[Rfam]
RNA sequence: CUGGGAUGAUGCAAUUUAGCCAAAUCUGACAUUGAUGUGCUCCUUAAGGAGUUAAGGCAUUGCAAUAUGACUACCUUUGGUAGAAGUGCAUCACUUUGAAGAUAAAAUUGAGAUUGGUUGCUUUCUGACCAGA
Numbered sequence: 001c002u003g004g005g006a007u008g009a010u011g012c013a014a015u016u017u018a019g020c021c022a023a024a025u026c027u028g029a030c031a032u033u034g035a036u037g038u039g040c041u042c043c044u045u046a047a048g049g050a051g052u053u054a055a056g057g058c059a060u061u062g063c064a065a066u067a068u069g070a071c072u073a074c075c076u077u078u079g080g081u082a083g084a085a086g087u088g089c090a091u092c093a094c095u096u097u098g099a100a101g102a103u104a105a106a107a108u109u110g111a112g113a114u115u116g117g118u119u120g121c122u123u124u125c126u127g128a129c130c131a132g133a
Stems, first nucleotide, its partner, number of pairs: 001132004